[Rfam]
A member of the RNA family "U4 spliceosomal RNA" from Cebus imitator, 133 nucleotides long. Pairs were carried over by alignment from the consensus structure, which is taken from published work.
RNA sequence: AGCUUUGUGCAGUGGCAGUAUCAUAGCCAAUGAGGUUUAUCCGAGGCGUGAUUAUUACUAAUUGAAAACUUUUCCCACCGUGACGACUUGCAAUACAGUCGGCCGUGGCAAUUUUUGACAGUCUCUAUGCAGA
Numbered sequence: 001a002g003c004u005u006u007g008u009g010c011a012g013u014g015g016c017a018g019u020a021u022c023a024u025a026g027c028c029a030a031u032g033a034g035g036u037u038u039a040u041c042c043g044a045g046g047c048g049u050g051a052u053u054a055u056u057a058c059u060a061a062u063u064g065a066a067a068a069c070u071u072u073u074c075c076c077a078c079c080g081u082g083a084c085g086a087c088u089u090g091c092a093a094u095a096c097a098g099u100c101g102g103c104c105g106u107g108g109c110a111a112u113u114u115u116u117g118a119c120a121g122u123c124u125c126u127a128u129g130c131a132g133a
Stems, first nucleotide, its partner, number of pairs: 020052005026047003034042002078108002082103001084101005122133003
U4 small nuclear RNA (U4 snRNA) is a component of the major U2-dependent spliceosome. A search with the family's covariance model found it, with a score of 95 bits.